Description:
Rfam assigns this 100-nucleotide RNA from Lathyrus oleraceus to the family "Small nucleolar RNA R30/Z108". By type it is a C/D-box small nucleolar RNA. Pairs were carried over by alignment from the consensus structure, which was predicted with PFOLD. Rfam links the family to the GO terms RNA processing and nucleolus. NCBI's taxonomy places the organism under Eukaryota, Streptophytina, Tracheophyta, Pentapetalae, Lathyrus. It scores 70 bits against the family's covariance model. On this family, see Marker et al., Curr Biol 2002: "Experimental RNomics. Identification of 140 Candidates for Small Non-Messenger RNAs in the Plant Arabidopsis thaliana". Clan: SNORD100 clan. About the family: snoR30 is a C/D box small nucleolar RNA which acts as a methylation guide for 18S ribosomal RNA in plants.
RNA sequence: AGUUUUCACAAUGAGGAUACACAACUCCCUCUUCUGAUUUUAAGUUGAGGGAAUUUGCUGGCAGAAUCGAACCUUAUAUAAUUUAUCCACCUUUGAGUGA
Numbered sequence: 001a002g003u004u005u006u007c008a009c010a011a012u013g014a015g016g017a018u019a020c021a022c023a024a025c026u027c028c029c030u031c032u033u034c035u036g037a038u039u040u041u042a043a044g045u046u047g048a049g050g051g052a053a054u055u056u057g058c059u060g061g062c063a064g065a066a067u068c069g070a071a072c073c074u075u076a077u078a079u080a081a082u083u084u085a086u087c088c089a090c091c092u093u094u095g096a097g098u099g100a
Stems, first nucleotide, its partner, number of pairs: 006100004